[Rfam]
ABC transporter regulator: a 76-nucleotide RNA sequence from Duffyella gerundensis.
The match comes from Rfam's covariance-model search (63 bits).
A reference for the family is Chao et al. (2012), "An atlas of Hfq-bound transcripts reveals 3' UTRs as a genomic reservoir of regulatory small RNAs", EMBO J.

RNA sequence: GUGAGCCAUGUGAUGUGGUUAUUUCGAUCGUAACUUUUUGAUUGAAAGGGCAAUAUGUUAUUGCCCUUUAUUUUUA
Numbered sequence: 001g002u003g004a005g006c007c008a009u010g011u012g013a014u015g016u017g018g019u020u021a022u023u024u025c026g027a028u029c030g031u032a033a034c035u036u037u038u039u040g041a042u043u044g045a046a047a048g049g050g051c052a053a054u055a056u057g058u059u060a061u062u063g064c065c066c067u068u069u070a071u072u073u074u075u076a
Stems, first nucleotide, its partner, number of pairs: 025044006046068010